[Rfam]
RNA sequence: GCUAGGCAGAUGUUGGCAUAGCUGAAUGCAAAUCAGAAAUCGAAAUUCGAAAAGUUUGAAUUUCGCGCGCUCAGCUUCGCCACAUCGUGCCAUGCG
Numbered sequence: 001g002c003u004a005g006g007c008a009g010a011u012g013u014u015g016g017c018a019u020a021g022c023u024g025a026a027u028g029c030a031a032a033u034c035a036g037a038a039a040u041c042g043a044a045a046u047u048c049g050a051a052a053a054g055u056u057u058g059a060a061u062u063u064c065g066c067g068c069g070c071u072c073a074g075c076u077u078c079g080c081c082a083c084a085u086c087g088u089g090c091c092a093u094g095c096g
Stems, first nucleotide, its partner, number of pairs: 005091003010085004015081003021075005

Overview
Shown here is a 96-nucleotide RNA sequence from Caenorhabditis briggsae, a member of the family "mir-72 microRNA precursor family". Its Rfam clan is "mir-31 microRNA precursor family". Rfam 15.1 lists 75 matches to the family in 67 species. The base pairs follow the family's consensus structure, which was predicted with RNAalifold.